Shown here is a 74-nucleotide RNA from Parnassius apollo, a member of the family "Mammalian CPEB3 ribozyme". Rfam describes the family as follows. The mammalian CPEB3 ribozyme is a self cleaving RNA located in the second intron of the CPEB3 gene which belongs to a family of genes regulating messenger RNA polyadenylation. This ribozyme is highly conserved and found only in mammals. The CPEB3 ribozyme is structurally and biochemically related to the human hepatitis delta virus (HDV) ribozyme and the HDV ribozyme is proposed to have arisen from the human transcriptome. There is currently only one other known self cleaving ribozyme in mammals, the CoTC motif. A search with the family's covariance model found it, with a score of 60 bits.

RNA sequence: AGGGGGUAGGGGGUCAUUGUAGAAGCGUGCUCGUCGCGACCCCUGCCAGCCCUUUUCAGGGCUGCAAUUCUACA
Numbered sequence: 001a002g003g004g005g006g007u008a009g010g011g012g013g014u015c016a017u018u019g020u021a022g023a024a025g026c027g028u029g030c031u032c033g034u035c036g037c038g039a040c041c042c043c044u045g046c047c048a049g050c051c052c053u054u055u056u057c058a059g060g061g062c063u064g065c066a067a068u069u070c071u072a073c074a
Base pairs, nucleotide, nucleotide: 010043011042012041013040014039015038018074019073020072021071022070023069024068025037026036027035047064048063049062050061051060052059053058